[Rfam]
Overview
This 224-nucleotide RNA from Pseudomonas sp. BAY1663 belongs to the Rfam family "sucA-II RNA". NCBI's taxonomy places the organism under Bacteria, Pseudomonadati, Gammaproteobacteria, Pseudomonadales, Pseudomonas. The match comes from Rfam's covariance-model search (146 bits). It is annotated as a cis-regulatory element.
RNA sequence: CUGCGGCGCCGAAGUUGAAGCUCGGCGCCGUAGUUUUAGUAGGAAUCCCAGCCCACAAAGCCGGGAUUUCACUCUGAAAAUUUGAUGACCAGCAGGGGCAUCCGGGUUGUGCCCGGAAACUAUCUGCGCGGUCCGUAGUGGCUUUACCUGAGUCGCUGCUUCAGAACUUGGGAAGUCAUGCUGCGGUUUCCACGCUGGUGGUGUCUCCUUAUCGAAGGUGACCA
Numbered sequence: 001c002u003g004c005g006g007c008g009c010c011g012a013a014g015u016u017g018a019a020g021c022u023c024g025g026c027g028c029c030g031u032a033g034u035u036u037u038a039g040u041a042g043g044a045a046u047c048c049c050a051g052c053c054c055a056c057a058a059a060g061c062c063g064g065g066a067u068u069u070c071a072c073u074c075u076g077a078a079a080a081u082u083u084g085a086u087g088a089c090c091a092g093c094a095g096g097g098g099c100a101u102c103c104g105g106g107u108u109g110u111g112c113c114c115g116g117a118a119a120c121u122a123u124c125u126g127c128g129c130g131g132u133c134c135g136u137a138g139u140g141g142c143u144u145u146a147c148c149u150g151a152g153u154c155g156c157u158g159c160u161u162c163a164g165a166a167c168u169u170g171g172g173a174a175g176u177c178a179u180g181c182u183g184c185g186g187u188u189u190c191c192a193c194g195c196u197g198g199u200g201g202u203g204u205c206u207c208c209u210u211a212u213c214g215a216a217g218g219u220g221a222c223c224a
Base pairs, nucleotide, nucleotide: 001033002032003031004030005029006028007027008026009025010024011023012022044068045067046066047065048064049063051061052060094209095208096207097206098205099203100202101117102116103115104114105113106112120201121200122199123198124197126195127194128193130191131190133186134185137182138181139180140179141177142175143174144173147172148171151168152167153166154164